[Rfam]
RNA: MIR5286 microRNA precursor family
Organism: Medicago truncatula
RNA sequence: AACAACUCUAGUUGUUUAGUAUUUGAUUUGUAAAACUGUUUCAGGUACAGGACAAACUGGAGGCAAGGGACAAGAAAA
Numbered sequence: 001a002a003c004a005a006c007u008c009u010a011g012u013u014g015u016u017u018a019g020u021a022u023u024u025g026a027u028u029u030g031u032a033a034a035a036c037u038g039u040u041u042c043a044g045g046u047a048c049a050g051g052a053c054a055a056a057c058u059g060g061a062g063g064c065a066a067g068g069g070a071c072a073a074g075a076a077a078a
Base pairs, nucleotide, nucleotide: 006062007061008060009059010058011057012056013055014053015052016051017050019048020047021046022045023044024043025042026041028038030036031035
Dot-bracket structure: .....((((((((((((.((((((((.(.((...)).)..)))))))).)))).))))))))................